[Rfam]
RNA: Small nucleolar RNA SNORA41
Organism: Galemys pyrenaicus
RNA sequence: UUCCACAGUUACUGACGUGCGACUGUUAAUUGUGGUAGCAGCUGUGGCAUUCCUCUGUGGGAAAAAGACUGUUGCAAGAUAAAACACCGCUCUUAGCAAAACAGAAAGUGGGCAUGUCUGUGAUGAACUAGC
Numbered sequence: 001u002u003c004c005a006c007a008g009u010u011a012c013u014g015a016c017g018u019g020c021g022a023c024u025g026u027u028a029a030u031u032g033u034g035g036u037a038g039c040a041g042c043u044g045u046g047g048c049a050u051u052c053c054u055c056u057g058u059g060g061g062a063a064a065a066a067g068a069c070u071g072u073u074g075c076a077a078g079a080u081a082a083a084a085c086a087c088c089g090c091u092c093u094u095a096g097c098a099a100a101a102c103a104g105a106a107a108g109u110g111g112g113c114a115u116g117u118c119u120g121u122g123a124u125g126a127a128c129u130a131g132c
Base pairs, nucleotide, nucleotide: 003060004059005058006057018046019045020044021043023041024040025039074121075120076119078117087112088111090108091107092104093103